RNA sequence: UUGACAGAAGAGAGUGAGCACACACAGUCAAUUGUGCAACGAGUACUUUCUGCCGGUGCGUGCUCACUUCUCUGUCUGUCAC
Numbered sequence: 001u002u003g004a005c006a007g008a009a010g011a012g013a014g015u016g017a018g019c020a021c022a023c024a025c026a027g028u029c030a031a032u033u034g035u036g037c038a039a040c041g042a043g044u045a046c047u048u049u050c051u052g053c054c055g056g057u058g059c060g061u062g063c064u065c066a067c068u069u070c071u072c073u074g075u076c077u078g079u080c081a082c
Base pairs, nucleotide, nucleotide: 002081003080004079005078006077007076008075010072011071012070013068014067015066016065017064018063019062020061021060023058024057025056

The record is an 82-nucleotide RNA from Kalanchoe fedtschenkoi, which matches "mir-156 microRNA precursor family" in Rfam. It scores 64 bits against the family's covariance model. The family's consensus secondary structure was predicted with PFOLD.